This 121-nucleotide sequence from Paraburkholderia phymatum belongs to the Rfam family "ZMP/ZTP riboswitch aptamer (pfl RNA motif)". A search with the family's covariance model found it, with a score of 45 bits. Pairs were carried over by alignment from the consensus structure, which is taken from published work. Taxonomically the source falls in Paraburkholderia phymatum (Bacteria, Pseudomonadota, Betaproteobacteria, Burkholderiales).
RNA sequence: CACGGUUCGCGCGACUGGCGCCUAGUUCAGGUGGACCACCAUCGGGGAACGCGAACCGGGGCCCAGCGCCGCUGGAGUCAUUGGCGAUGCCCCGUUCGAGCCGCGCGCCUGGGCCUUGCUG
Numbered sequence: 001c002a003c004g005g006u007u008c009g010c011g012c013g014a015c016u017g018g019c020g021c022c023u024a025g026u027u028c029a030g031g032u033g034g035a036c037c038a039c040c041a042u043c044g045g046g047g048a049a050c051g052c053g054a055a056c057c058g059g060g061g062c063c064c065a066g067c068g069c070c071g072c073u074g075g076a077g078u079c080a081u082u083g084g085c086g087a088u089g090c091c092c093c094g095u096u097c098g099a100g101c102c103g104c105g106c107g108c109c110u111g112g113g114c115c116u117u118g119c120u121g
Stems, first nucleotide, its partner, number of pairs: 003058009015046002017109005031042004098116001100114003